This 93-nucleotide RNA sequence from Prauserella shujinwangii belongs to the Rfam family "Glycine riboswitch aptamer".

[Rfam]
RNA sequence: CGAGCCGGAGCGGGAGAGCCCCCGUGGACGAGGCGGGGCACCGAAGGAGCAAACUCCCCGGAAUCUCUCAGGUACAGCUACCGCUUUCGGCGA
Numbered sequence: 001c002g003a004g005c006c007g008g009a010g011c012g013g014g015a016g017a018g019c020c021c022c023c024g025u026g027g028a029c030g031a032g033g034c035g036g037g038g039c040a041c042c043g044a045a046g047g048a049g050c051a052a053a054c055u056c057c058c059c060g061g062a063a064u065c066u067c068u069c070a071g072g073u074a075c076a077g078c079u080a081c082c083g084c085u086u087u088c089g090g091c092g093a
Stems, first nucleotide, its partner, number of pairs: 007087007020038006040073003043069002047067003054060001

NCBI's taxonomy places the organism under Bacteria, Bacillati, Actinomycetes, Pseudonocardiaceae, Prauserella.